This 46-nucleotide RNA sequence from Acyrthosiphon pisum belongs to the Rfam family "Histone 3' UTR stem-loop". The family's consensus secondary structure is taken from published work. The family's RNA type in Rfam is cis-regulatory element. The match comes from Rfam's covariance-model search (36 bits). The mRNAs of metazoan histone genes lack a poly-A tail. 3' end processing occurs at a site between a highly conserved stem-loop (modelled by this family) and a purine rich region around 20 nts downstream (the histone downstream element, or HDE). The stem-loop is bound by a 31 kDa stem-loop binding protein (SLBP - also termed the histone hairpin binding protein, or HBP). Together with U7 snRNA binding of the HDE, SLBP binding nucleate s the formation of the processing complex. The histone 3' UTR stem-loop is also involved in nucleocytoplasmic transport of the mRNA, and in stability regulation and translation efficiency in the cytoplasm.
RNA sequence: AAAACGGCCCUUUUUAGGGCCACCACAUUUUUAAGUUCAUAUAAUU
Numbered sequence: 001a002a003a004a005c006g007g008c009c010c011u012u013u014u015u016a017g018g019g020c021c022a023c024c025a026c027a028u029u030u031u032u033a034a035g036u037u038c039a040u041a042u043a044a045u046u
Base pairs, nucleotide, nucleotide: 006021007020008019009018010017011016